Record summary:
This 77-nucleotide RNA from Salvator merianae belongs to the Rfam family "Small nucleolar RNA SNORD102". The literature on the family includes a 2003 paper in Nucleic Acids Res by Vitali et al., "Identification of 13 novel human modification guide RNAs". The match comes from Rfam's covariance-model search (52 bits). It is annotated as a C/D-box small nucleolar RNA.
Nucleotides: 077
Stems, first nucleotide, its partner, number of pairs: 002076004
Number, partner (000 for none) and nucleotide at each position: 001000a002076g003075c004074u005073u006000g007000a008000u009000g010000a011000u012000g013000a014000c015000a016000g017000u018000c019000u020000c021000c022000u023000a024000u025000g026000a027000u028000u029000g030000c031000u032000u033000u034000u035000g036000a037000a038000a039000a040000a041000g042000c043000a044000g045000g046000a047000u048000g049000a050000g051000u052000a053000a054000a055000u056000c057000a058000u059000u060000u061000c062000a063000c064000c065000g066000g067000c068000a069000c070000u071000g072000a073005a074004a075003g076002c077000a